A member of the RNA family "Potassium channel RNA editing signal" from Sinocyclocheilus rhinocerous, 113 nucleotides long.
Rfam 15.1 lists 14,095 matches to the family in 1,000 species.
This family represents a group of sequences related to the human potassium channel Kv1.1 hairpin element which directs the efficient modification of an adenosine to inosine by an adenosine deaminase acting on RNA (ADAR).
The family's consensus secondary structure is taken from published work.
It is annotated as a cis-regulatory element.
Lineage of the source: Eukaryota > Metazoa > Gnathostomata > Cyprinidae > Sinocyclocheilus.
The literature on the family includes a 2004 paper in Nat Struct Mol Biol by Bhalla et al., "Control of human potassium channel inactivation by editing of a small mRNA hairpin".
[Rfam]
RNA sequence: GCAGGUAUGGAGACAUGGUCCCUAAGACUAUAGCAGGAAAGAUCUUUGGCUCCAUCUGUUCUCUCAGUGGGGUGCUGGUCAUCGCUCUGCCUGUUCCCGUCAUUGUUUCCAAC
Numbered sequence: 001g002c003a004g005g006u007a008u009g010g011a012g013a014c015a016u017g018g019u020c021c022c023u024a025a026g027a028c029u030a031u032a033g034c035a036g037g038a039a040a041g042a043u044c045u046u047u048g049g050c051u052c053c054a055u056c057u058g059u060u061c062u063c064u065c066a067g068u069g070g071g072g073u074g075c076u077g078g079u080c081a082u083c084g085c086u087c088u089g090c091c092u093g094u095u096c097c098c099g100u101c102a103u104u105g106u107u108u109c110c111a112a113c
Stems, first nucleotide, its partner, number of pairs: 001113001004110002007106004012101003017096002020093001036076002039073001048062002